[Rfam]
RNA sequence: AGUGUAGUCUCCUAAAUGCACGUAGCCCUUAUAGGGCUUUUU
Numbered sequence: 001a002g003u004g005u006a007g008u009c010u011c012c013u014a015a016a017u018g019c020a021c022g023u024a025g026c027c028c029u030u031a032u033a034g035g036g037c038u039u040u041u042u
Base pairs, nucleotide, nucleotide: 002019003018004017005016024038025037026036027035028034029033
Background
This 42-nucleotide sequence from Streptococcus sp. M334 belongs to the Rfam family "Streptococcus sRNA SpF51". The literature on the family includes a 2012 paper in PLoS Pathog by Mann et al., "Control of virulence by small RNAs in Streptococcus pneumoniae". The sequence is in the family's curated seed alignment. It is annotated as a small RNA.